The family of this 110-nucleotide RNA sequence from Ktedonosporobacter rubrisoli is "SAM riboswitch aptamer (S box leader)". The match comes from Rfam's covariance-model search (85 bits). The organism belongs to Ktedonosporobacter, within Bacteria. The SAM riboswitch is found upstream of a number of genes which code for proteins involved in methionine or cysteine biosynthesis in Gram-positive bacteria.
RNA sequence: CUCUCAUCAAGAGAGGUGGAGGGAAACGGCCCGAUGAAGCCCGGCAACCCGUUUGCAUAGUUGCAAACAGGGUGCCAAUUCCGGCGAGUAUAUUAUUCGCAAGAUGAGGG
Numbered sequence: 001c002u003c004u005c006a007u008c009a010a011g012a013g014a015g016g017u018g019g020a021g022g023g024a025a026a027c028g029g030c031c032c033g034a035u036g037a038a039g040c041c042c043g044g045c046a047a048c049c050c051g052u053u054u055g056c057a058u059a060g061u062u063g064c065a066a067a068c069a070g071g072g073u074g075c076c077a078a079u080u081c082c083g084g085c086g087a088g089u090a091u092a093u094u095a096u097u098c099g100c101a102a103g104a105u106g107a108g109g110g
Base pairs, nucleotide, nucleotide: 001110002109003108004107005106006105007104008103013042015041016040017039021032022031023030027083028082029081043076044075045074046073048072049071051068052067053066054065080102085099086098087097088096089095090094